[Rfam]
RNA: Small nucleolar RNA Z278
Organism: Phoenix dactylifera
RNA sequence: GCCAGUGAUGAUUUGUCUGCAAAAUGGAUGUGUUGUGGAACCAAGUCCCUGCUUGCAGGGAGAACCUACUUGGGAAAGCAGCACUUUACAUGACAUCCUCAGAUACUUCUGAGGC
Numbered sequence: 001g002c003c004a005g006u007g008a009u010g011a012u013u014u015g016u017c018u019g020c021a022a023a024a025u026g027g028a029u030g031u032g033u034u035g036u037g038g039a040a041c042c043a044a045g046u047c048c049c050u051g052c053u054u055g056c057a058g059g060g061a062g063a064a065c066c067u068a069c070u071u072g073g074g075a076a077a078g079c080a081g082c083a084c085u086u087u088a089c090a091u092g093a094c095a096u097c098c099u100c101a102g103a104u105a106c107u108u109c110u111g112a113g114g115c
Stems, first nucleotide, its partner, number of pairs: 001115003047060005
Dot-bracket structure: (((...........................................(((((....)))))....................................................)))